A member of the RNA family "Small nucleolar RNA SNORD113/SNORD114 family" from Gulo gulo, 72 nucleotides long. It is annotated as a C/D-box small nucleolar RNA. From the family's description: The imprinted human domain at 14q32 contains two clusters of tandemly repeated small nucleolar RNAs named 14q(I) and 14q(II) snoRNAs. The family has 59 seed sequences and 5,721 matches in Rfam 15.1. Pairs were carried over by alignment from the consensus structure, which is taken from published work.

[Rfam]
RNA sequence: AUGACCAAUGAUGACGACUGGAAGCUUGGCAGUCAAGGAUGAAGAAAACGUGUCUGAAACUGGGAGGUCCUG
Numbered sequence: 001a002u003g004a005c006c007a008a009u010g011a012u013g014a015c016g017a018c019u020g021g022a023a024g025c026u027u028g029g030c031a032g033u034c035a036a037g038g039a040u041g042a043a044g045a046a047a048a049c050g051u052g053u054c055u056g057a058a059a060c061u062g063g064g065a066g067g068u069c070c071u072g
Stems, first nucleotide, its partner, number of pairs: 003069004